[Rfam]
RNA sequence: UUAACAUCUUAAUAUUGCGUUCAUAUAAUCGCGGAGAUAGGGUCUGCAAGUUUCUACCGGGCUGCCGUAAAUAGCCUGACUAUGAGCGAAAGUGUGCCUAGG
Number, nucleotide and partner (000 for none) at each position: 001u000002u000003a000004a000005c000006a000007u000008c000009u000010u000011a000012a000013u000014a000015u000016u000017g000018c088019g087020u086021u085022c084023a083024u082025a081026u000027a000028a000029u049030c000031g047032c046033g045034g044035a043036g000037a000038u000039a000040g000041g000042g000043u035044c034045u033046g032047c031048a000049a029050g000051u000052u000053u000054c000055u000056a000057c000058c078059g077060g076061g075062c074063u073064g072065c000066c000067g000068u000069a000070a000071a000072u064073a063074g062075c061076c060077u059078g058079a000080c000081u025082a024083u023084g022085a021086g020087c019088g018089a000090a000091a000092g000093u000094g000095u000096g000097c000098c000099u000100a000101g000102g000
A member of the RNA family "Purine riboswitch aptamer" from Desulfitobacterium dichloroeliminans, 102 nucleotides long.
A search with the family's covariance model found it, with a score of 85 bits.